[Rfam]
RNA sequence: AUCGCACAUCAAGAGUGAGGCCUGUGCCUCUACCAACCUGCCCUUCCCGGCAAGGUGGUGUCCGAACAAGGAGAUGUGGCCAUGACGGCAACCAAGGGGAUCAU
Dot-bracket structure: .....(((((....(.(((((....))))))(((..((((((..[[[[))).))).))).............))))).(((.....))).......]]]]....
Numbered sequence: 001a002u003c004g005c006a007c008a009u010c011a012a013g014a015g016u017g018a019g020g021c022c023u024g025u026g027c028c029u030c031u032a033c034c035a036a037c038c039u040g041c042c043c044u045u046c047c048c049g050g051c052a053a054g055g056u057g058g059u060g061u062c063c064g065a066a067c068a069a070g071g072a073g074a075u076g077u078g079g080c081c082a083u084g085a086c087g088g089c090a091a092c093c094a095a096g097g098g099g100a101u102c103a104u
Stems, first nucleotide, its partner, number of pairs: 006077005015031001017030005032059003037055003040051003045100004079089003
The record is a 104-nucleotide sequence from Roseobacter sp. AzwK-3b, which matches "SAM-I/IV (S-adenosyl methionine) riboswitch aptamer" in Rfam.
It is one of the family's seed sequences.